RNA sequence: CGACCGCAAACGGUGUCGUUCACCGGGAGCCAAGGCCAUACGGACAGCCGGGUCGAAUGCCGA
Number, nucleotide and partner (000 for none) at each position: 001c055002g054003a053004c052005c051006g030007c029008a000009a000010a000011c025012g024013g023014u022015g021016u000017c000018g000019u000020u000021c015022a014023c013024c012025g011026g000027g000028a000029g007030c006031c000032a000033a000034g000035g000036c000037c000038a000039u000040a000041c000042g000043g000044a000045c000046a000047g000048c000049c000050g000051g005052g004053u003054c002055g001056a000057a000058u000059g000060c000061c000062g000063a000
The family of this 63-nucleotide sequence is "Streptococcus sRNA SpF59 (ldcC RNA)". The sequence is in the family's curated seed alignment. Rfam classes the family as a small RNA.